Rfam assigns this 78-nucleotide RNA from Novosphingobium chloroacetimidivorans to the family "Makes More Granules Regulator RNA (mmgR)". The pairing is the family consensus, mapped onto this sequence. By type it is a small RNA. A reference for the family is Schluter et al. (2010), "A genome-wide survey of sRNAs in the symbiotic nitrogen-fixing alpha-proteobacterium Sinorhizobium meliloti", BMC Genomics. Rfam describes the family as follows. SuhB later renamed mmgR (makes more granules regulator) was a putative non-coding RNA found multiple times in the Agrobacterium tumefaciens genome and related alpha-proteobacteria. Other non-coding RNAs uncovered in the same analysis include: speF, ybhL, metA, and serC.Several studies inSinorhizobium meliloti showed that suhB element is indeed a non-coding RNA:firstly it was detected on Northern blot and called Sm8RNA, secondly in an RNAseq study referred to as SmelC689.The mutant phenotype's (strain lacking the small RNA) cytoplasm contains higher content of polyhydroxybutyrate (PBH)storage granules than wild type strain. The sRNA is required to limit the PBH intracellular accumulation when the nitrogen-fixing Sinorhizobium meliloti is under condition of surplus carbon in relation to nitrogen. It has been renamed to mmgR. Further study confirmed that mmgR fine-tunes the regulation of PBH storage.Northern blot confirmed the expression of the sRNA in other rhizobia species.
RNA sequence: CGAAAGUGCCUUUCAGGCAUCCUCUCCCAAAACUUCCAUGGCCCGGUCGGUAACGAUCGGGCCUUUUUUCUUGCCUUC
Numbered sequence: 001c002g003a004a005a006g007u008g009c010c011u012u013u014c015a016g017g018c019a020u021c022c023u024c025u026c027c028c029a030a031a032a033c034u035u036c037c038a039u040g041g042c043c044c045g046g047u048c049g050g051u052a053a054c055g056a057u058c059g060g061g062c063c064u065u066u067u068u069u070c071u072u073g074c075c076u077u078c
Base pairs, nucleotide, nucleotide: 008018009017010016011015040063041062042061043060044059045058046057047056048055